RNA sequence: GCAGGUGAAUGCAACGUCAAGCGAUGGGCGUUGUGCUCCAUAAUUGUCUUACUUUCUUAUAUUUAGAAUUACUGCAUAGCACAUUGAUUCAUACGAUGCCGGUUUAAUCACCGGCAUUU
Number, nucleotide and partner (000 for none) at each position: 001g047002c046003a045004g044005g000006u000007g038008a037009a000010u035011g034012c033013a032014a031015c030016g029017u028018c027019a000020a000021g000022c000023g000024a000025u000026g000027g018028g017029c016030g015031u014032u013033g012034u011035g010036c000037u008038c007039c000040a000041u000042a000043a000044u004045u003046g002047u001048c000049u000050u000051a000052c000053u000054u000055u000056c000057u000058u000059a000060u000061a000062u000063u000064u000065a000066g090067a089068a088069u087070u086071a085072c000073u081074g080075c079076a000077u000078a000079g075080c074081a073082c000083a000084u000085u071086g070087a069088u068089u067090c066091a000092u000093a000094c000095g000096a000097u000098g115099c114100c113101g112102g111103u110104u000105u000106a000107a000108u000109c000110a103111c102112c101113g100114g099115c098116a000117u000118u000119u000
Shown here is a 119-nucleotide RNA sequence from Serratia proteamaculans, a member of the family "Fumarate/nitrate reductase regulator sRNA". The source organism's lineage runs through Bacteria, Pseudomonadota, Gammaproteobacteria, Yersiniaceae and Serratia proteamaculans. The family's RNA type in Rfam is small RNA. Pairs were carried over by alignment from the consensus structure, which is taken from published work. The sequence is in the family's curated seed alignment.